[Rfam]
sucA-II RNA: a 218-nucleotide RNA from Pseudomonas mangrovi.
Taxonomically the source falls in Pseudomonas (Bacteria, Pseudomonadati, Gammaproteobacteria, Pseudomonadales).
It scores 140 bits against the family's covariance model.
The family's RNA type in Rfam is cis-regulatory element.
RNA sequence: CUGCACUACUGAGAAAAUCGGUGGUGCAGCAUCCAGAAGAACCGCAGCUCAAAAAGCCGCGGUUCUUGUUUGAAAAACGACGACCAGCAGGGGCAUCCGGGCUGGCACCCGGACUAUCUGCGGGAUUCGUAGUGGCUUUACCGAAGUCGCUGCCUCAGGGCUUUGUGAAAGAACCAUGCGUAUCCACGCCGGUGGUGGCCCCUUAUUGAGGGUGACCA
Numbered sequence: 001c002u003g004c005a006c007u008a009c010u011g012a013g014a015a016a017a018u019c020g021g022u023g024g025u026g027c028a029g030c031a032u033c034c035a036g037a038a039g040a041a042c043c044g045c046a047g048c049u050c051a052a053a054a055a056g057c058c059g060c061g062g063u064u065c066u067u068g069u070u071u072g073a074a075a076a077a078c079g080a081c082g083a084c085c086a087g088c089a090g091g092g093g094c095a096u097c098c099g100g101g102c103u104g105g106c107a108c109c110c111g112g113a114c115u116a117u118c119u120g121c122g123g124g125a126u127u128c129g130u131a132g133u134g135g136c137u138u139u140a141c142c143g144a145a146g147u148c149g150c151u152g153c154c155u156c157a158g159g160g161c162u163u164u165g166u167g168a169a170a171g172a173a174c175c176a177u178g179c180g181u182a183u184c185c186a187c188g189c190c191g192g193u194g195g196u197g198g199c200c201c202c203u204u205a206u207u208g209a210g211g212g213u214g215a216c217c218a
Base pairs, nucleotide, nucleotide: 001029002028003027004026005025006024007023008022009021010020011019012018040064041063042062043061044060045059047057048056049055089203090202091201092200093199094197095196096113097112098111099110100109101108114195115194116193117192118191120189121188122187124185126182128180132177133176134175135174137171138170139169141167145162146161147160148159